[Rfam]
The family of this 97-nucleotide RNA from Drosophila yakuba is "mir-274 microRNA precursor family".

RNA sequence: UGUGUUGCAGUUUCGUUUUGUGACCGACACUAACGGGUAAUUGUUUGGUCGCCAGGAUUACUCGUUUUUGCGAUCACAAAUCAUGAAAUUGCAGCAA
Numbered sequence: 001u002g003u004g005u006u007g008c009a010g011u012u013u014c015g016u017u018u019u020g021u022g023a024c025c026g027a028c029a030c031u032a033a034c035g036g037g038u039a040a041u042u043g044u045u046u047g048g049u050c051g052c053c054a055g056g057a058u059u060a061c062u063c064g065u066u067u068u069u070g071c072g073a074u075c076a077c078a079a080a081u082c083a084u085g086a087a088a089u090u091g092c093a094g095c096a097a
Stems, first nucleotide, its partner, number of pairs: 003096008013086003017080007025072002028070002032066008
A reference for the family is Lai et al. (2003), "Computational identification of Drosophila microRNA genes", Genome Biol.